[Rfam]
RNA sequence: CGAUGAACAUGACCACGCUCCUUCACGCAAGCGCCGCCCGGAUGGCCUCGGGCAUGACCUCGCGUGCUCGCCGACCGGAAUCCCACAUCCUCGCUGGGUGACCGGAAGCUGCGUGCUGUCUG
Numbered sequence: 001c002g003a004u005g006a007a008c009a010u011g012a013c014c015a016c017g018c019u020c021c022u023u024c025a026c027g028c029a030a031g032c033g034c035c036g037c038c039c040g041g042a043u044g045g046c047c048u049c050g051g052g053c054a055u056g057a058c059c060u061c062g063c064g065u066g067c068u069c070g071c072c073g074a075c076c077g078g079a080a081u082c083c084c085a086c087a088u089c090c091u092c093g094c095u096g097g098g099u100g101a102c103c104g105g106a107a108g109c110u111g112c113g114u115g116c117u118g119u120c121u122g
Stems, first nucleotide, its partner, number of pairs: 030117004036109002038105002040076002043073004051068006077103002082098004086093001